A member of the RNA family "Streptomyces-metK RNA" from Streptomyces sp. SID8379, 116 nucleotides long. The base pairs follow the family's consensus structure, which is taken from published work.
[Rfam]
RNA sequence: GCGAGACGCGUGGUCCGGCGGCCGAGCACGACCGAUAAACUGUUCCCGGACGUGUCGGGCGCAGCCCCCGUACCGUCCGUCAAUGAUCAGCCAGCAGCCGCUGCAACCACAGGGAG
Numbered sequence: 001g002c003g004a005g006a007c008g009c010g011u012g013g014u015c016c017g018g019c020g021g022c023c024g025a026g027c028a029c030g031a032c033c034g035a036u037a038a039a040c041u042g043u044u045c046c047c048g049g050a051c052g053u054g055u056c057g058g059g060c061g062c063a064g065c066c067c068c069c070g071u072a073c074c075g076u077c078c079g080u081c082a083a084u085g086a087u088c089a090g091c092c093a094g095c096a097g098c099c100g101c102u103g104c105a106a107c108c109a110c111a112g113g114g115a116g
Stems, first nucleotide, its partner, number of pairs: 048078005056070004092103004
Dot-bracket structure: ...............................................(((((...((((.......))))...))))).............((((....)))).............